[Rfam]
RNA sequence: GACCGACGGUGCGACGAAUACAAGACCCGAAAGGGGAAUAAGUCCGCCUGAUUUUCUGCAGGUUUUGAGCCGUUGGUCGCCCAUGU
Numbered sequence: 001g002a003c004c005g006a007c008g009g010u011g012c013g014a015c016g017a018a019u020a021c022a023a024g025a026c027c028c029g030a031a032a033g034g035g036g037a038a039u040a041a042g043u044c045c046g047c048c049u050g051a052u053u054u055u056c057u058g059c060a061g062g063u064u065u066u067g068a069g070c071c072g073u074u075g076g077u078c079g080c081c082c083a084u085g086u
Stems, first nucleotide, its partner, number of pairs: 001078009013044003017039001026035003046063005